[Rfam]
RNA sequence: CCGGGAGCACCGCCGAGACUGAUCGGCCGUCCCAGGCGGCCGUGACGUGCCGGGGAACCACGCAAGUGGGGUGAAUCGACUCGUCCGCGAGUCGUAGGGCAGACCUUGGCCCGAACCCGUCAGCUCACCCGGUAGGCGUCGAGGAUCGUAGGA
Numbered sequence: 001c002c003g004g005g006a007g008c009a010c011c012g013c014c015g016a017g018a019c020u021g022a023u024c025g026g027c028c029g030u031c032c033c034a035g036g037c038g039g040c041c042g043u044g045a046c047g048u049g050c051c052g053g054g055g056a057a058c059c060a061c062g063c064a065a066g067u068g069g070g071g072u073g074a075a076u077c078g079a080c081u082c083g084u085c086c087g088c089g090a091g092u093c094g095u096a097g098g099g100c101a102g103a104c105c106u107u108g109g110c111c112c113g114a115a116c117c118c119g120u121c122a123g124c125u126c127a128c129c130c131g132g133u134a135g136g137c138g139u140c141g142a143g144g145a146u147c148g149u150a151g152g153a
Base pairs, nucleotide, nucleotide: 011138012137013136014135018048019047049133050132051131052130053129054128059068060067069118070117071116077094078093079092080091097112098111099110100109
Rfam assigns this 153-nucleotide sequence from Aeromicrobium terrae to the family "c-di-AMP riboswitch aptamer (ydaO/yuaA leader)". The pairing is the family consensus, mapped onto this sequence. A reference for the family is Barrick et al. (2004), "New RNA motifs suggest an expanded scope for riboswitches in bacterial genetic control", Proc Natl Acad Sci U S A. NCBI's taxonomy places the organism under Bacteria, Bacillati, Actinomycetota, Nocardioidaceae, Aeromicrobium. The match comes from Rfam's covariance-model search (78 bits).